[Rfam]
The record is a 600-nucleotide part of an RNA from Cafeteria roenbergensis, which matches "Eukaryotic large subunit ribosomal RNA" in Rfam. The source organism's lineage runs through Eukaryota, Sar, Stramenopiles, Bigyra and Cafeteria. Its Rfam clan is "LSU clan". The family's consensus secondary structure is taken from published work. The family has 88 seed sequences and 107,465 matches in Rfam 15.1.
RNA sequence: AUCAGCGGGGAAAGAAGACCCUGUUGAGCUUGACUCUAGUCUGACGUUGUGAAAUGACUUGUGAGGUGUAGAAUAAGUGGGAGCCUAGUCGACCUUGAAAUACCACUACUUGCAAUGUUGUUUUACUUAUUCCGUGAGGUACAAACCCCUCGCGAGAGGGAUUCUUGAACCAAACCUUCGGGUGAUGUACGCGGAAGACAACGUCAGGUGGGGAGUUUGGCUGGGGCGGCACAUCUGUUAAAUGAUACCACAGGUGUCCUAAGGUCAGCUCAAUGAGAACAGAAAUCUCAUGUGGAAUAUAAGGGUAAAAGCUGACUUGAUUUUGAUUUUCAGUAUGAAUACAAACCGUGAAAGCGUGGCCUAACGAUCCUUUAGCAUUUCGGGACUUGAAGCUAGAGGUGUCAGAAAAGUUACCACAGGGAUAACUGGCUUGUGGCAGCCAAGCGUUCAUAGCGACGUUGCUUUUUGAUUCUUCGAUGUCGGCUCUUCCUAUCAUACCGCCGCAGAAGACGGUAAGUGUCGGAUUGUUCACCCGCCAAUAGGGAACGUGAGCUGGGUUUAGACCGUCGUGAGACAGGUUAGUUUUACCCUACUGAUGAG
Numbered sequence: 001a002u003c004a005g006c007g008g009g010g011a012a013a014g015a016a017g018a019c020c021c022u023g024u025u026g027a028g029c030u031u032g033a034c035u036c037u038a039g040u041c042u043g044a045c046g047u048u049g050u051g052a053a054a055u056g057a058c059u060u061g062u063g064a065g066g067u068g069u070a071g072a073a074u075a076a077g078u079g080g081g082a083g084c085c086u087a088g089u090c091g092a093c094c095u096u097g098a099a100a101u102a103c104c105a106c107u108a109c110u111u112g113c114a115a116u117g118u119u120g121u122u123u124u125a126c127u128u129a130u131u132c133c134g135u136g137a138g139g140u141a142c143a144a145a146c147c148c149c150u151c152g153c154g155a156g157a158g159g160g161a162u163u164c165u166u167g168a169a170c171c172a173a174a175c176c177u178u179c180g181g182g183u184g185a186u187g188u189a190c191g192c193g194g195a196a197g198a199c200a201a202c203g204u205c206a207g208g209u210g211g212g213g214a215g216u217u218u219g220g221c222u223g224g225g226g227c228g229g230c231a232c233a234u235c236u237g238u239u240a241a242a243u244g245a246u247a248c249c250a251c252a253g254g255u256g257u258c259c260u261a262a263g264g265u266c267a268g269c270u271c272a273a274u275g276a277g278a279a280c281a282g283a284a285a286u287c288u289c290a291u292g293u294g295g296a297a298u299a300u301a302a303g304g305g306u307a308a309a310a311g312c313u314g315a316c317u318u319g320a321u322u323u324u325g326a327u328u329u330u331c332a333g334u335a336u337g338a339a340u341a342c343a344a345a346c347c348g349u350g351a352a353a354g355c356g357u358g359g360c361c362u363a364a365c366g367a368u369c370c371u372u373u374a375g376c377a378u379u380u381c382g383g384g385a386c387u388u389g390a391a392g393c394u395a396g397a398g399g400u401g402u403c404a405g406a407a408a409a410g411u412u413a414c415c416a417c418a419g420g421g422a423u424a425a426c427u428g429g430c431u432u433g434u435g436g437c438a439g440c441c442a443a444g445c446g447u448u449c450a451u452a453g454c455g456a457c458g459u460u461g462c463u464u465u466u467u468g469a470u471u472c473u474u475c476g477a478u479g480u481c482g483g484c485u486c487u488u489c490c491u492a493u494c495a496u497a498c499c500g501c502c503g504c505a506g507a508a509g510a511c512g513g514u515a516a517g518u519g520u521c522g523g524a525u526u527g528u529u530c531a532c533c534c535g536c537c538a539a540u541a542g543g544g545a546a547c548g549u550g551a552g553c554u555g556g557g558u559u560u561a562g563a564c565c566g567u568c569g570u571g572a573g574a575c576a577g578g579u580u581a582g583u584u585u586u587a588c589c590c591u592a593c594u595g596a597u598g599a600g
Base pairs, nucleotide, nucleotide: 001597002596003595004594005593008591009590010589012586013585020420021419022418023417025416026415027412028411029410030409031408033216034215035214036213040208041207042206043205044204045203046202049126050125051124052123053122054121055120056119057118058117059115060114061113062112063111064110065109076107077106078105079104080103083090130196131195132194133193134192140189141188142187143186148159149158150157151156174183175182176181219232220230221229222228233255234254235253236252237251238250258359259358264316265315266314267313268312269311270296271295273291274290275289276288277287278286297306298305321345322344323343326340327339328338329337347356348355349354370398371397372396373395374394375393378392379391380390381389429470431468433467435463436462437461438460439459440458444454445453481556482554483553484552485551486548487545488544489543490542491541494519495518497514498513499512500511502509521535522534523533525531562580563579564578565577566575567574568573